A member of the RNA family "ALIL pseudoknot" from Thermobifida halotolerans, 114 nucleotides long.
It scores 76 bits against the family's covariance model.
Taxonomically the source falls in Thermobifida (Bacteria, Bacillati, Actinomycetota, Nocardiopsidaceae).
Rfam classes the family as a cis-regulatory element.

RNA sequence: GGCUUUCUUCGCGGCGGAGCUCGACCGCCCACACACCAGGUAGUCGACUACAUCGACACCCACAAGCAGGAGUUCGGGGUCGAGCCGAUCUGCCACACCCUGCAGAUCGUCCCG
Numbered sequence: 001g002g003c004u005u006u007c008u009u010c011g012c013g014g015c016g017g018a019g020c021u022c023g024a025c026c027g028c029c030c031a032c033a034c035a036c037c038a039g040g041u042a043g044u045c046g047a048c049u050a051c052a053u054c055g056a057c058a059c060c061c062a063c064a065a066g067c068a069g070g071a072g073u074u075c076g077g078g079g080u081c082g083a084g085c086c087g088a089u090c091u092g093c094c095a096c097a098c099c100c101u102g103c104a105g106a107u108c109g110u111c112c113c114g
Base pairs, nucleotide, nucleotide: 013029014028015027016026017025075114076113077112078111079110086109087108089106090105091104092103093102
Dot-bracket structure: ............(((((.......))))).............................................(((((......((.(((((........))))).)))))))